[Rfam]
Nucleotides: 285
Base pairs, nucleotide, nucleotide: 006033007032008031013028014027015026038050040048091138094136095135103131104129105128109125112122113121144164146162149160150159151158152157169212170211171210172208173207219261220260221259222258223257224256225255226254229247230246231245232244233243234242270285273282274281275280
Number, partner (000 for none) and nucleotide at each position: 001000u002000g003000g004000u005000g006033c007032c008031c009000a010000a011000c012000u013028g014027u015026g016000u017000g018000g019000c020000u021000u022000c023000g024000g025000a026015u027014a028013c029000g030000g031008g032007g033006g034000a035000a036000u037000u038050c039000a040048c041000g042000a043000g044000g045000g046000a047000a048040g049000a050038g051000g052000c053000g054000u055000g056000u057000a058000a059000g060000u061000g062000u063000u064000c065000g066000g067000c068000c069000g070000a071000a072000g073000g074000a075000a076000a077000a078000a079000a080000a081000c082000a083000g084000u085000g086000a087000a088000a089000g090000u091138c092000a093000g094136u095135u096000c097000c098000a099000c100000a101000a102000a103131g104129a105128u106000c107000g108000c109125c110000a111000a112122g113121g114000u115000a116000g117000c118000c119000u120000g121113c122112c123000g124000c125109g126000c127000c128105a129104u130000u131103c132000u133000u134000a135095a136094a137000a138091g139000u140000a141000c142000a143000g144164u145000a146162g147000c148000g149160c150159c151158u152157a153000a154000g155000u156000a157152u158151g159150g160149g161000a162146c163000a164144a165000g166000a167000a168000u169212u170211a171210a172208g173207u174000a175000a176000g177000c178000a179000u180000a181000a182000a183000g184000u185000u186000u187000u188000u189000g190000u191000u192000a193000a194000g195000c196000a197000a198000u199000u200000a201000a202000a203000a204000g205000a206000a207173g208172c209000u210171u211170u212169a213000a214000a215000g216000a217000c218000a219261c220260g221259g222258g223257g224256a225255g226254u227000a228000a229247a230246g231245g232244u233243u234242a235000a236000g237000a238000g239000u240000a241000a242234u243233g244232a245231u246230u247229u248000u249000u250000u251000a252000a253000a254226g255225u256224u257223u258222u259221u260220u261219g262000a263000c264000c265000u266000u267000a268000u269000u270285a271000a272000g273282g274281a275280c276000a277000c278000c279000u280275g281274u282273c283000g284000g285270u
The record is a 285-nucleotide RNA from Sciurus vulgaris, which matches "Mason-Pfizer monkey virus packaging signal" in Rfam. The family's consensus secondary structure was predicted with PFOLD. Taxonomically the source falls in Sciurus (Eukaryota, Eumetazoa, Vertebrata, Amniota). Rfam describes the family as follows. This family represents a group of sequences that are related to the Mason-Pfizer monkey virus (MPMV) packaging signal. The packaging signal is located in the 5' UTR and is required for specific RNA encapsidation. Rfam 15.1 lists 2,921 matches to the family in 53 species. A search with the family's covariance model found it, with a score of 165 bits.